The record is a 108-nucleotide RNA from Aminipila luticellarii, which matches "FMN riboswitch aptamer (RFN element)" in Rfam. The base pairs follow the family's consensus structure, which is taken from published work. The source organism's lineage runs through Bacteria, Bacillati, Bacillota, Peptostreptococcales and Aminipila.
RNA sequence: AUAUUUCUUCUAGAAGAGUGUUCUCUACUGGCGGUAUAGCCCGCGAGCCUCGGCCAAUUCGUUUUGAUCACGAAGCCAACAGUAAAGUCUGGAUGAGCGGAGAAAGCA
Numbered sequence: 001a002u003a004u005u006u007c008u009u010c011u012a013g014a015a016g017a018g019u020g021u022u023c024u025c026u027a028c029u030g031g032c033g034g035u036a037u038a039g040c041c042c043g044c045g046a047g048c049c050u051c052g053g054c055c056a057a058u059u060c061g062u063u064u065u066g067a068u069c070a071c072g073a074a075g076c077c078a079a080c081a082g083u084a085a086a087g088u089c090u091g092g093a094u095g096a097g098c099g100g101a102g103a104a105a106g107c108a
Stems, first nucleotide, its partner, number of pairs: 004105007016025003027088002029078002031044004039076002047054002058074005080091003